RNA sequence: AUUGCAAGUGACGAUAAAAAGACAGGGACAUCAGAACUCCAAUUUUUGCAGUAGUAAUGACCAAGUCUAUAAUGGGAAUCUCUCUGAUGCAAU
Numbered sequence: 001a002u003u004g005c006a007a008g009u010g011a012c013g014a015u016a017a018a019a020a021g022a023c024a025g026g027g028a029c030a031u032c033a034g035a036a037c038u039c040c041a042a043u044u045u046u047u048g049c050a051g052u053a054g055u056a057a058u059g060a061c062c063a064a065g066u067c068u069a070u071a072a073u074g075g076g077a078a079u080c081u082c083u084c085u086g087a088u089g090c091a092a093u
Stems, first nucleotide, its partner, number of pairs: 002092005
The record is a 93-nucleotide RNA from Cynara cardunculus, which matches "Small nucleolar RNA R44/J54/Z268 family" in Rfam. Pairs were carried over by alignment from the consensus structure, which was predicted with PFOLD. The family is grouped with related families in Rfam's "SNORD74 clan". The family has 29 seed sequences and 1,168 matches in Rfam 15.1. Its family is annotated with RNA processing and nucleolus in the Gene Ontology.